RNA sequence: GGAGGACGCUCUGGAAAGCGUCGUGGCUCGCGCCGCGACCACCGAAGGGGUAACUCCGUGCCAUCGCGGAGGAAAACUCUCAGGUUCCCGUGACAGAGGGGGCAUG
Numbered sequence: 001g002g003a004g005g006a007c008g009c010u011c012u013g014g015a016a017a018g019c020g021u022c023g024u025g026g027c028u029c030g031c032g033c034c035g036c037g038a039c040c041a042c043c044g045a046a047g048g049g050g051u052a053a054c055u056c057c058g059u060g061c062c063a064u065c066g067c068g069g070a071g072g073a074a075a076a077c078u079c080u081c082a083g084g085u086u087c088c089c090g091u092g093a094c095a096g097a098g099g100g101g102g103c104a105u106g
Stems, first nucleotide, its partner, number of pairs: 007100001009098005020039006041085003044081002048079003054072002
RNA: Glycine riboswitch aptamer